[Rfam]
RNA sequence: UGCCUAAACCCUCAUUAGAGGGCAUGGCAUAAAAAUCCCGCUGCAGGACAGAGGGCUCGUCGUCAGCCCAAAACCUGCAGCGGGUCGUAUACCGAAAGGUAUACGGGUUCGUAAAGAACC
Numbered sequence: 001u002g003c004c005u006a007a008a009c010c011c012u013c014a015u016u017a018g019a020g021g022g023c024a025u026g027g028c029a030u031a032a033a034a035a036u037c038c039c040g041c042u043g044c045a046g047g048a049c050a051g052a053g054g055g056c057u058c059g060u061c062g063u064c065a066g067c068c069c070a071a072a073a074c075c076u077g078c079a080g081c082g083g084g085u086c087g088u089a090u091a092c093c094g095a096a097a098g099g100u101a102u103a104c105g106g107g108u109u110c111g112u113a114a115a116g117a118a119c120c
Base pairs, nucleotide, nucleotide: 001029002028003027004026009022010021011020012019013018037084038083039082040081041080042079043078044077045076046075047074053069054068055067056066057065086105087104088103089102090101091100092099093098106120107119108118109117110116
Dot-bracket structure: ((((....(((((....)))))...)))).......(((((((((((.....(((((.......)))))....))))))))))).((((((((....))))))))(((((.....)))))

This 120-nucleotide RNA belongs to the Rfam family "LOOT RNA".